Shown here is a 500-nucleotide sequence from Aureobasidium namibiae, a member of the family "RNase MRP". A search with the family's covariance model found it, with a score of 95 bits. Rfam's curators write: RNase MRP is an enzymatically active ribonucleoprotein with two distinct roles in eukaryotes.
RNA sequence: UCCUCGCUCAAACAAUCGCAAUCAAAGCUUCCACACCGAAAGGGCGCUCUGGCUCUCUUUCUGCUUCUUCUCGCUUUGGGAGAAAGUCCCCGGACACGCCAUGGGUCUUCUCGUGGUAUGCGGAAACGCGCCGCCAUAGAUGCAAGCACACCUGCGGCUUACACGCCUGUCCCUUCCGUUUCGCUGCCUGGACAUGGUCCCUGUCGCCAUUUGCACUCUUCAUGUGCGCUGUUGGUCUUGUUGCUGGUCUCUUGCUCGGUCGCCUCGCCUGCAAAGGGGAUGAGGAUAUGAGUCCGCGGCUGGGCAACGGGGCUGGCUAAGGGGUCCUUCUGGCGUCGUGGAGAGGAGGUGAUGGGUUCGUCUUGGUAAUCUCGCCGUCUUUGGGCUGCGGGAGUCACAGGAAGGGCAUCCGGCAUCUUCUUCGUCGAGGUCGAAAGAUAUGCGAUUGCCUUCUUUUGAAAGAAAGAGGUAACUCGAUGGGGCUUAUUCUUGAUGCGAGG
Dot-bracket structure: .((((((((((..((((((..(((((((.........(((((((..........)))))))...........)))))).)...[[[.[[[[...........................((((....))))............................................................................................................................................................................................(((....((((((.(.(((.(..................................................).))..).).))))))...........)))......................)))))).((((.(.........).)))).........]]]]]]]....)))).))))))
Numbered sequence: 001u002c003c004u005c006g007c008u009c010a011a012a013c014a015a016u017c018g019c020a021a022u023c024a025a026a027g028c029u030u031c032c033a034c035a036c037c038g039a040a041a042g043g044g045c046g047c048u049c050u051g052g053c054u055c056u057c058u059u060u061c062u063g064c065u066u067c068u069u070c071u072c073g074c075u076u077u078g079g080g081a082g083a084a085a086g087u088c089c090c091c092g093g094a095c096a097c098g099c100c101a102u103g104g105g106u107c108u109u110c111u112c113g114u115g116g117u118a119u120g121c122g123g124a125a126a127c128g129c130g131c132c133g134c135c136a137u138a139g140a141u142g143c144a145a146g147c148a149c150a151c152c153u154g155c156g157g158c159u160u161a162c163a164c165g166c167c168u169g170u171c172c173c174u175u176c177c178g179u180u181u182c183g184c185u186g187c188c189u190g191g192a193c194a195u196g197g198u199c200c201c202u203g204u205c206g207c208c209a210u211u212u213g214c215a216c217u218c219u220u221c222a223u224g225u226g227c228g229c230u231g232u233u234g235g236u237c238u239u240g241u242u243g244c245u246g247g248u249c250u251c252u253u254g255c256u257c258g259g260u261c262g263c264c265u266c267g268c269c270u271g272c273a274a275a276g277g278g279g280a281u282g283a284g285g286a287u288a289u290g291a292g293u294c295c296g297c298g299g300c301u302g303g304g305c306a307a308c309g310g311g312g313c314u315g316g317c318u319a320a321g322g323g324g325u326c327c328u329u330c331u332g333g334c335g336u337c338g339u340g341g342a343g344a345g346g347a348g349g350u351g352a353u354g355g356g357u358u359c360g361u362c363u364u365g366g367u368a369a370u371c372u373c374g375c376c377g378u379c380u381u382u383g384g385g386c387u388g389c390g391g392g393a394g395u396c397a398c399a400g401g402a403a404g405g406g407c408a409u410c411c412g413g414c415a416u417c418u419u420c421u422u423c424g425u426c427g428a429g430g431u432c433g434a435a436a437g438a439u440a441u442g443c444g445a446u447u448g449c450c451u452u453c454u455u456u457u458g459a460a461a462g463a464a465a466g467a468g469g470u471a472a473c474u475c476g477a478u479g480g481g482g483c484u485u486a487u488u489c490u491u492g493a494u495g496c497g498a499g500g
Stems, first nucleotide, its partner, number of pairs: 002500006008493004014447006022080001023078006038061007084485003088482004119130004319419003326405006333398001335396001336393002339390001449469004454464001